[Rfam]
Nucleotides: 076
Stems, first nucleotide, its partner, number of pairs: 015044004021076007028040001030038001048065006
Number, partner (000 for none) and nucleotide at each position: 001000u002000a003000g004000g005000a006000a007000g008000g009000g010000u011000u012000u013000g014000a015044g016043g017042c018041c019000a020000u021076a022075g023074c024073a025072g026071a027070a028040g029000g030038g031000c032000u033000c034000g035000c036000a037000g038030c039000a040028u041018g042017g043016c044015c045000u046000a047000u048065c049064a050063g051062a052061u053060u054000c055000c056000a057000a058000c059000a060053a061052a062051u063050c064049u065048g066000c067000a068000a069000a070027u071026u072025c073024u074023g075022c076021u
The record is a 76-nucleotide RNA from Crocodylus porosus, which matches "Mammalian CPEB3 ribozyme" in Rfam. A search with the family's covariance model found it, with a score of 43 bits. The family's consensus secondary structure is taken from published work. The mammalian CPEB3 ribozyme is a self cleaving RNA located in the second intron of the CPEB3 gene which belongs to a family of genes regulating messenger RNA polyadenylation. Lineage of the source: Eukaryota > Metazoa > Gnathostomata > Sarcopterygii > Crocodylus.